[Rfam]
RNA sequence: GAGGCGGUAUCGGGCAAGAACCGAACUGCACUCUGCGGAUAGAAGAAGACAAUUGUAUAAAGCACGUUUCCCAUAUCGGAUUCUGCUCUGAGCCGUACGGACCGAGACAGAAGG
Numbered sequence: 001g002a003g004g005c006g007g008u009a010u011c012g013g014g015c016a017a018g019a020a021c022c023g024a025a026c027u028g029c030a031c032u033c034u035g036c037g038g039a040u041a042g043a044a045g046a047a048g049a050c051a052a053u054u055g056u057a058u059a060a061a062g063c064a065c066g067u068u069u070c071c072c073a074u075a076u077c078g079g080a081u082u083c084u085g086c087u088c089u090g091a092g093c094c095g096u097a098c099g100g101a102c103c104g105a106g107a108c109a110g111a112a113g114g
Stems, first nucleotide, its partner, number of pairs: 001033003004029005010024004083110003086106003090102001093100002
Record summary: Rfam assigns this 114-nucleotide RNA sequence from Paenibacillus sp. J2TS4 to the family "pan motif". Lineage of the source: Bacteria > Bacillota > Bacilli > Paenibacillaceae > Paenibacillus.